Nucleotides: 093
Base pairs, nucleotide, nucleotide: 006066007065008064009063015029017028018027019026020025030057031056032055035053036052037051038049039048040047042089043088044087045086046085068077069076070075
Number, partner (000 for none) and nucleotide at each position: 001000a002000g003000u004000a005000a006066g007065c008064a009063u010000a011000u012000a013000g014000a015029g016000a017028a018027g019026g020025u021000u022000a023000a024000g025020a026019c027018c028017u029015c030057a031056g032055c033000a034000a035053c036052c037051u038049g039048g040047a041000a042089g043088a044087c045086u046085a047040u048039c049038c050000a051037a052036g053035g054000u055032g056031c057030u058000u059000g060000a061000a062000g063009a064008u065007g066006u067000g068077g069076c070075a071000g072000a073000a074000a075070u076069g077068c078000a079000a080000c081000u082000a083000a084000a085046u086045a087044g088043u089042c090000a091000g092000a093000a
This 93-nucleotide RNA belongs to the Rfam family "SAM-I/IV (S-adenosyl methionine) riboswitch aptamer". Rfam's curators put it in the seed alignment.